[Rfam]
RNA sequence: CGGGCGCUACCACCUGAGGAGCGCACCGGAGAUUACUUUCAAUCAAUGAUUUAUCACAUGCAGGCCGCUUGGAUCUCCAGGGACCGGGACGGGUGC
Numbered sequence: 001c002g003g004g005c006g007c008u009a010c011c012a013c014c015u016g017a018g019g020a021g022c023g024c025a026c027c028g029g030a031g032a033u034u035a036c037u038u039u040c041a042a043u044c045a046a047u048g049a050u051u052u053a054u055c056a057c058a059u060g061c062a063g064g065c066c067g068c069u070u071g072g073a074u075c076u077c078c079a080g081g082g083a084c085c086g087g088g089a090c091g092g093g094u095g096c
Stems, first nucleotide, its partner, number of pairs: 001028003004024005010019002065092003068088005074083003
Dot-bracket structure: ((((((((.((......))))))).)))....................................((((((((.(((....)))))))).)))....
Rfam assigns this 96-nucleotide RNA from Neomoorella thermoacetica to the family "pan motif". The base pairs follow the family's consensus structure, which is taken from published work. The family's RNA type in Rfam is cis-regulatory element. Taxonomically the source falls in Neomoorella (Bacteria, Bacillati, Bacillota, Neomoorellales).